RNA sequence: UAACCUCUGACAAAAAUUGUGUAAGUUU
Numbered sequence: 001u002a003a004c005c006u007c008u009g010a011c012a013a014a015a016a017u018u019g020u021g022u023a024a025g026u027u028u
Stems, first nucleotide, its partner, number of pairs: 002027003008023001010020004

The family of this 28-nucleotide RNA from Aedes aegypti is "L19-Flavobacteria ribosomal protein leader". It is annotated as a cis-regulatory leader. For this family Rfam cites "Discovery of 20 novel ribosomal leader candidates in bacteria and archaea" (Eckert and Weinberg, BMC Microbiol, 2020).